[Rfam]
RNA sequence: CUGCAGAGAUGACGACCCUGAACUCUCUCUUUCCGACCCACACAUGGAGAAACCCCUUCACAACCCUCUGAGCAGC
Numbered sequence: 001c002u003g004c005a006g007a008g009a010u011g012a013c014g015a016c017c018c019u020g021a022a023c024u025c026u027c028u029c030u031u032u033c034c035g036a037c038c039c040a041c042a043c044a045u046g047g048a049g050a051a052a053c054c055c056c057u058u059c060a061c062a063a064c065c066c067u068c069u070g071a072g073c074a075g076c
Stems, first nucleotide, its partner, number of pairs: 001075004

This 76-nucleotide sequence from Pavo cristatus belongs to the Rfam family "Small nucleolar RNA SNORD26". It is annotated as a C/D-box small nucleolar RNA. The match comes from Rfam's covariance-model search (49 bits). Taxonomically the source falls in Pavo (Eukaryota, Tetrapoda, Sauria, Phasianidae). Rfam 15.1 lists 451 matches to the family in 401 species. Its family is annotated with nucleolus and RNA processing in the Gene Ontology. The family is grouped with related families in Rfam's "SNORD26 clan".